[Rfam]
RNA sequence: UGAAUAGCUGGCUAGGGUUCCGAUCCAUGCAAUAUGGAUGUCUGGUCCGAGAGCUGGCGACCUCCAGUUGAGGUUACACGGCGGGACAAAAGCCCGGGAGAC
Numbered sequence: 001u002g003a004a005u006a007g008c009u010g011g012c013u014a015g016g017g018u019u020c021c022g023a024u025c026c027a028u029g030c031a032a033u034a035u036g037g038a039u040g041u042c043u044g045g046u047c048c049g050a051g052a053g054c055u056g057g058c059g060a061c062c063u064c065c066a067g068u069u070g071a072g073g074u075u076a077c078a079c080g081g082c083g084g085g086a087c088a089a090a091a092g093c094c095c096g097g098g099a100g101a102c
Base pairs, nucleotide, nucleotide: 007058008057009056010055011054012053015048016047020045021044022042023039024038025037026036027035028034059075060074061073062072063071064070077097079100083095084094085093
A member of the RNA family "Guanidine-I riboswitch aptamer" from Pectobacterium atrosepticum, 102 nucleotides long. This family represents a conserved RNA structure found upstream of the ykkC and yxkD genes in Bacillus subtilis and related genes in other bacteria. The function of this family is unclear although it has been suggested that it may function to switch on efflux pumps and detoxification systems in response to harmful environmental molecules.